[Rfam]
RNA sequence: CGGGCCGCAUCGGAAGGUGUGGUCUGACCGGGCAGAAGUCAGCAGAGGCCGUAGUACCAGCCGGGAUGGCCGCCGAUGCGCGGUGGGUUGGGAAGGGC
Numbered sequence: 001c002g003g004g005c006c007g008c009a010u011c012g013g014a015a016g017g018u019g020u021g022g023u024c025u026g027a028c029c030g031g032g033c034a035g036a037a038g039u040c041a042g043c044a045g046a047g048g049c050c051g052u053a054g055u056a057c058c059a060g061c062c063g064g065g066a067u068g069g070c071c072g073c074c075g076a077u078g079c080g081c082g083g084u085g086g087g088u089u090g091g092g093a094a095g096g097g098c
Base pairs, nucleotide, nucleotide: 001026002025004023005022006021007020008019009018010017011016039046040045048098049097050096057091058090059089060088061087062086
RNA: Group II catalytic intron D1-D4-1
Organism: Streptomyces sp. SID10815